This 147-nucleotide RNA sequence from [Actinomadura] parvosata belongs to the Rfam family "c-di-AMP riboswitch aptamer (ydaO/yuaA leader)". NCBI's taxonomy places the organism under Bacteria, Bacillati, Actinomycetes, Nonomuraea, [Actinomadura] parvosata. Rfam describes the family as follows. This family represents a conserved RNA structure found upstream of the ydaO and yuaA genes in Bacillus subtilis and related genes in other bacteria.

RNA sequence: GAGAGGCGGCCGCCGAAUUCGCGAUCUCGCGGAGCCGGGGACCCACAUGUUCCUGGGGUGAAUCGGCGCGCUCCGCUUGAGCGCUCCGUAGGGCACUUCCACGCCCGAACCCGUCAGCUAACCCGGUAGGCGGCAUGGAAGCAAGGA
Numbered sequence: 001g002a003g004a005g006g007c008g009g010c011c012g013c014c015g016a017a018u019u020c021g022c023g024a025u026c027u028c029g030c031g032g033a034g035c036c037g038g039g040g041a042c043c044c045a046c047a048u049g050u051u052c053c054u055g056g057g058g059u060g061a062a063u064c065g066g067c068g069c070g071c072u073c074c075g076c077u078u079g080a081g082c083g084c085u086c087c088g089u090a091g092g093g094c095a096c097u098u099c100c101a102c103g104c105c106c107g108a109a110c111c112c113g114u115c116a117g118c119u120a121a122c123c124c125g126g127u128a129g130g131c132g133g134c135a136u137g138g139a140a141g142c143a144a145g146g147a
Stems, first nucleotide, its partner, number of pairs: 011132004018033005034127006044055002056112003064088003091106004